The record is a 71-nucleotide sequence from Phrynocephalus forsythii, which matches "Small nucleolar RNA SNORD56" in Rfam.
Rfam 15.1 lists 796 matches to the family in 432 species.
Its family is annotated with nucleolus and RNA processing in the Gene Ontology.
Pairs were carried over by alignment from the consensus structure, which was predicted with PFOLD.
The match comes from Rfam's covariance-model search (41 bits).
By type it is a C/D-box small nucleolar RNA.
A reference for the family is Galardi et al. (2002), "Purified box C/D snoRNPs are able to reproduce site-specific 2'-O-methylation of target RNA in vitro", Mol Cell Biol.

[Rfam]
RNA sequence: CUAUGAUGGAUGCAUUUUUCUAUAAUCAACAGCAUUUCACCCAGUGAAUGGUGACACUUCAGGUCUGAUAA
Numbered sequence: 001c002u003a004u005g006a007u008g009g010a011u012g013c014a015u016u017u018u019u020c021u022a023u024a025a026u027c028a029a030c031a032g033c034a035u036u037u038c039a040c041c042c043a044g045u046g047a048a049u050g051g052u053g054a055c056a057c058u059u060c061a062g063g064u065c066u067g068a069u070a071a
Base pairs, nucleotide, nucleotide: 002070003069008027009026011024